About this RNA: A member of the RNA family "RNA anti-toxin A" from Streptococcus hyointestinalis, 85 nucleotides long. The literature on the family includes a 2010 paper in Nucleic Acids Res by Fozo et al., "Abundance of type I toxin-antitoxin systems in bacteria: searches for new candidates and discovery of novel families". Rfam classes the family as an antitoxin RNA.
[Rfam]
RNA sequence: UAAUGAAAAUAGAAAAGGAGUUGAGUUCCAGCUCAACUCCGUGUAGAACCGUUCACGACGGUAGCUAAGUAUAAGUUAUGCUAAU
Numbered sequence: 001u002a003a004u005g006a007a008a009a010u011a012g013a014a015a016a017g018g019a020g021u022u023g024a025g026u027u028c029c030a031g032c033u034c035a036a037c038u039c040c041g042u043g044u045a046g047a048a049c050c051g052u053u054c055a056c057g058a059c060g061g062u063a064g065c066u067a068a069g070u071a072u073a074a075g076u077u078a079u080g081c082u083a084a085u
Base pairs, nucleotide, nucleotide: 022035023034024033025032048062049061050060051059052058053057